The family of this 96-nucleotide RNA from Arachidicoccus soli is "TPP riboswitch aptamer (THI element)". The base pairs follow the family's consensus structure, which is taken from published work.
RNA sequence: AUUUACAUCACGGGGUGCUGAGAUUUUCGGCUGAGAUAUUUACCCGUUUUACCUGAACAGGAUAAUGCCUGCGUAGGAAUGAUGAAUUAAGCGAAA
Numbered sequence: 001a002u003u004u005a006c007a008u009c010a011c012g013g014g015g016u017g018c019u020g021a022g023a024u025u026u027u028c029g030g031c032u033g034a035g036a037u038a039u040u041u042a043c044c045c046g047u048u049u050u051a052c053c054u055g056a057a058c059a060g061g062a063u064a065a066u067g068c069c070u071g072c073g074u075a076g077g078a079a080u081g082a083u084g085a086a087u088u089a090a091g092c093g094a095a096a
Stems, first nucleotide, its partner, number of pairs: 006084005011046004017031005052077004058071004

From the family's description: Vitamin B(1) in its active form thiamin pyrophosphate (TPP) is an essential coenzyme that is synthesised by coupling of pyrimidine and thiazole moieties in bacteria.
The organism belongs to Arachidicoccus, within Bacteria.